[Rfam]
RNA sequence: AAACGACAAGGGCAUACCCGACCGAAAGGCGGGGACGCAAAACCACCGGUCUACGGCAAACGCCACGACAGCGGAGUUACCGAA
Numbered sequence: 001a002a003a004c005g006a007c008a009a010g011g012g013c014a015u016a017c018c019c020g021a022c023c024g025a026a027a028g029g030c031g032g033g034g035a036c037g038c039a040a041a042a043c044c045a046c047c048g049g050u051c052u053a054c055g056g057c058a059a060a061c062g063c064c065a066c067g068a069c070a071g072c073g074g075a076g077u078u079a080c081c082g083a084a
Stems, first nucleotide, its partner, number of pairs: 012038002017033004022029002041078003046074003049069003056063002
RNA: c-di-GMP-I riboswitch aptamer
Organism: Thioalkalivibrio sulfidiphilus